[Rfam]
RNA sequence: AUGUACCACGCGUACGCUCCGGUUCCUCAGCGUCGUUCGCGCUCAUCUGACGACAGCUCGCGACGUUUUGUUAGCC
Dot-bracket structure: .(((((.....)))))...((((.(....).))))...........(((((((..............)))))))..
Xanthomonas sRNA sX9: a 76-nucleotide RNA from Xanthomonas oryzae. The source organism's lineage runs through Bacteria, Pseudomonadati, Lysobacteraceae, Xanthomonas and Xanthomonas oryzae pv. oryzae. A search with the family's covariance model found it, with a score of 80 bits.